RNA sequence: AAAUGUCUUCGGGGCAGGGUGACUCUUAUGUAACAAUAUCGGUUCAUAAGCAAGAAUUCCCGAUUGGCGGUCAAAGUCCGCGAGCGUUAAGCGCAUGAUUUGGUUCAAUUCCAAAACCAACAGUAAAGUCUGGAUAAAAGAAGAUGACU
Dot-bracket structure: ...(((((((......(((.......................................))).[[((((((.....[[)))).................(((((.......)))))]])).(((....]]))).......)))))))...
A member of the RNA family "FMN riboswitch aptamer (RFN element)" from Parablautia intestinalis, 149 nucleotides long. A search with the family's covariance model found it, with a score of 85 bits. The source organism's lineage runs through Bacteria, Bacillati, Clostridia, Lachnospiraceae and Parablautia.